[Rfam]
RNA: Plastid-clpP 5UTR RNA
RNA sequence: AAUUUUGUUCGUAGAACAAAGAGAAGCAAGUUUAUUCUUAAAUCAAUAAGUACCAAUAUGCAAUGCGG
Numbered sequence: 001a002a003u004u005u006u007g008u009u010c011g012u013a014g015a016a017c018a019a020a021g022a023g024a025a026g027c028a029a030g031u032u033u034a035u036u037c038u039u040a041a042a043u044c045a046a047u048a049a050g051u052a053c054c055a056a057u058a059u060g061c062a063a064u065g066c067g068g
Stems, first nucleotide, its partner, number of pairs: 003021002006018005044065001050059003